[Rfam]
RNA sequence: UGCACCCGCACGGGAGAGUCCCCGGCCACCAGGUCGAGGCGCCGAAGGAGCAACCUCCCCGGAAUCUCUCAGGCCCCCGGACCGCGCGGGUGGG
Numbered sequence: 001u002g003c004a005c006c007c008g009c010a011c012g013g014g015a016g017a018g019u020c021c022c023c024g025g026c027c028a029c030c031a032g033g034u035c036g037a038g039g040c041g042c043c044g045a046a047g048g049a050g051c052a053a054c055c056u057c058c059c060c061g062g063a064a065u066c067u068c069u070c071a072g073g074c075c076c077c078c079g080g081a082c083c084g085c086g087c088g089g090g091u092g093g094g
Stems, first nucleotide, its partner, number of pairs: 006089004011084003020039002023036003041074003044070002048068003054062002
RNA: Glycine riboswitch aptamer